[Rfam]
RNA: Streptococcus sRNA SpR20
Organism: Streptococcus pseudopneumoniae
RNA sequence: UGGCGCAGCCCUCGUUCUCGUGGCUAUCUGGUUAGGAUGGCCCAA
Numbered sequence: 001u002g003g004c005g006c007a008g009c010c011c012u013c014g015u016u017c018u019c020g021u022g023g024c025u026a027u028c029u030g031g032u033u034a035g036g037a038u039g040g041c042c043c044a045a
Stems, first nucleotide, its partner, number of pairs: 002010003022042008